[Rfam]
RNA sequence: CUGGCGUCAGUGCUGGGGAGCAGCCCCCAGGCGGGCCUCUGCUCUGGCCCCUUCUGGGGCCCGCACUCUCGCCCCGGGCCCG
Dot-bracket structure: ..(((.((.(.((.((((.((.(.(((((((.(((((........)))))..))))))).).)).)))).)).).)))))..